[Rfam]
RNA sequence: CACUAAAAAUAAAUCGUACACUGUAUAACCUCAAGAAUAUGGCUUGGGGGUCUCUACCAGGAACCAUAAAAUCCUGAUUACAGAAAAUGAGUCUAUCAUU
Numbered sequence: 001c002a003c004u005a006a007a008a009a010u011a012a013a014u015c016g017u018a019c020a021c022u023g024u025a026u027a028a029c030c031u032c033a034a035g036a037a038u039a040u041g042g043c044u045u046g047g048g049g050g051u052c053u054c055u056a057c058c059a060g061g062a063a064c065c066a067u068a069a070a071a072u073c074c075u076g077a078u079u080a081c082a083g084a085a086a087a088u089g090a091g092u093c094u095a096u097c098a099u100u
Base pairs, nucleotide, nucleotide: 021083022082023081024080025079029049030048031047032046033045034044035043058076059075060074061073062072
About this RNA:
The family of this 100-nucleotide RNA from Virgibacillus salarius is "Purine riboswitch aptamer". NCBI's taxonomy places the organism under Bacteria, Bacillati, Bacilli, Caryophanales, Virgibacillus. Gene Ontology term of the family: purine nucleobase biosynthetic process. The family's consensus secondary structure is taken from published work.